The family of this 67-nucleotide sequence from Bombyx mori is "mir-2774 microRNA precursor family". NCBI's taxonomy places the organism under Eukaryota, Bilateria, Mandibulata, Pterygota, Bombyx. A search with the family's covariance model found it, with a score of 56 bits. A reference for the family is Liu et al. (2010), "MicroRNAs of Bombyx mori identified by Solexa sequencing", BMC Genomics. Pairs were carried over by alignment from the consensus structure, which was predicted with RNAalifold.
RNA sequence: AUAACAUUAGAACCGUCGGUCUACUGAGCAAUUUCACCCGUUCGGUGAAAGGUUUUACCCUUAUCGU
Number, nucleotide and partner (000 for none) at each position: 001a000002u000003a000004a064005c000006a062007u000008u000009a000010g058011a000012a056013c000014c000015g053016u052017c051018g000019g000020u049021c000022u047023a046024c045025u044026g043027a042028g041029c040030a000031a000032u000033u000034u000035c000036a000037c000038c000039c000040g029041u028042u027043c026044g025045g024046u023047g022048a000049a020050a000051g017052g016053u015054u000055u000056u012057a000058c010059c000060c000061u000062u006063a000064u004065c000066g000067u000